[Rfam]
Nucleotides: 132
Stems, first nucleotide, its partner, number of pairs: 001064005006058001012053003015049005022040001073126007085116001087114001088112004093107004
Number, partner (000 for none) and nucleotide at each position: 001064a002063g003062c004061a005060c006058c007000u008000a009000a010000a011000a012053g013052c014051g015049u016048u017047u018046u019045c020000a021000u022040g023000a024000u025000c026000g027000c028000u029000c030000u031000g032000a033000u034000g035000a036000a037000a038000c039000g040022c041000g042000c043000u044000u045019g046018a047017a048016a049015a050000u051014c052013g053012u054000a055000g056000c057000u058006g059000u060005g061004u062003g063002c064001u065000a066000g067000a068000g069000c070000a071000a072000a073126u074125c075124u076123u077122g078121g079120u080000u081000g082000c083000a084000a085116g086000c087114g088112a089111c090110u091109g092000u093107a094106g095105g096104u097000c098000c099000c100000u101000a102000g103000a104096g105095u106094c107093u108000g109091u110090a111089g112088u113000c114087c115000a116085u117000a118000a119000c120079g121078c122077u123076g124075a125074g126073a127000a128000c129000a130000u131000u132000a